Rfam assigns this 93-nucleotide RNA sequence from Conger conger to the family "mir-217 microRNA precursor family". Gene Ontology terms of the family: miRNA-mediated post-transcriptional gene silencing and RISC complex. A search with the family's covariance model found it, with a score of 90 bits.
[Rfam]
RNA sequence: GGCUUUCUGGUGUCGGAGAUACUGCAUCAGGAACUGAAUGGAUGAUGUUGUGAGGCCAUCAGUUCCUCGUGCAUUGCCUUCAGCAUCGAAAGG
Numbered sequence: 001g002g003c004u005u006u007c008u009g010g011u012g013u014c015g016g017a018g019a020u021a022c023u024g025c026a027u028c029a030g031g032a033a034c035u036g037a038a039u040g041g042a043u044g045a046u047g048u049u050g051u052g053a054g055g056c057c058a059u060c061a062g063u064u065c066c067u068c069g070u071g072c073a074u075u076g077c078c079u080u081c082a083g084c085a086u087c088g089a090a091a092g093g
Stems, first nucleotide, its partner, number of pairs: 023073005029067009039058003